[Rfam]
RNA sequence: UUUUUUAAAGAAGAUCUGGCCUUCCUACAAGGGGAGGCCAGAGAAUUUUCUU
Number, nucleotide and partner (000 for none) at each position: 001u000002u000003u000004u000005u000006u000007a000008a052009a051010g050011a049012a048013g047014a046015u042016c041017u040018g039019g038020c037021c036022u035023u034024c033025c032026u000027a000028c000029a000030a000031g000032g025033g024034g023035a022036g021037g020038c019039c018040a017041g016042a015043g000044a000045a000046u014047u013048u012049u011050c010051u009052u008

The family of this 52-nucleotide RNA sequence from Lentivirus humimdef1 is "HIV Ribosomal frameshift signal". The family's consensus secondary structure is taken from published work. For this family Rfam cites "The human immunodeficiency virus type 1 ribosomal frameshifting site is an invariant sequence determinant and an important target for antiviral therapy" (Biswas et al., J Virol, 2004). This family represents the HIV Ribosomal frameshift signal. By type it is a frameshift element. Gene Ontology term of the family: viral translational frameshifting.